[Rfam]
RNA sequence: GUUUCGCGUGAAGGAUAGUAGCGAAAAUCCUUUUUGUUUAAGCUUAUGAAGUCUUCUAGCCAGCUUUUACGGACUUCGCAAGUUUCGCUAACAAAAAGAUUGCAGCAAAUAGCCUGACCCUGG
Number, nucleotide and partner (000 for none) at each position: 001g000002u000003u000004u000005c000006g000007c000008g000009u000010g000011a000012a115013g114014g113015a000016u111017a110018g000019u000020a000021g106022c105023g000024a000025a000026a101027a100028u099029c098030c000031u000032u096033u095034u094035u093036g092037u091038u090039u000040a000041a000042g000043c000044u000045u000046a000047u000048g000049a000050a000051g000052u000053c000054u000055u000056c000057u000058a000059g000060c000061c000062a000063g000064c000065u000066u000067u000068u000069a000070c000071g000072g000073a000074c000075u000076u000077c000078g000079c000080a000081a000082g000083u000084u000085u000086c000087g000088c000089u000090a038091a037092c036093a035094a034095a033096a032097a000098g029099a028100u027101u026102g000103c000104a000105g022106c021107a000108a000109a000110u017111a016112g000113c014114c013115u012116g000117a000118c000119c000120c000121u000122g000123g000

Shown here is a 123-nucleotide sequence from Pedobacter polaris, a member of the family "Flavo-1 RNA". By type it is a small RNA. Pairs were carried over by alignment from the consensus structure, which is taken from published work. The source organism's lineage runs through Bacteria, Pseudomonadati, Sphingobacteriales, Sphingobacteriaceae and Pedobacter.